[Rfam]
RNA sequence: GAGACCAUGGCGAAAAGGCGAACGCAGCGGACUGUGAAUCCGCCAGUACCGGUUCGAGUCCGGUUGGUCUCC
Numbered sequence: 001g002a003g004a005c006c007a008u009g010g011c012g013a014a015a016a017g018g019c020g021a022a023c024g025c026a027g028c029g030g031a032c033u034g035u036g037a038a039u040c041c042g043c044c045a046g047u048a049c050c051g052g053u054u055c056g057a058g059u060c061c062g063g064u065u066g067g068u069c070u071c072c
Stems, first nucleotide, its partner, number of pairs: 001071007010025003027043005048064005
RNA: tRNA
Organism: Cohnella sp. OV330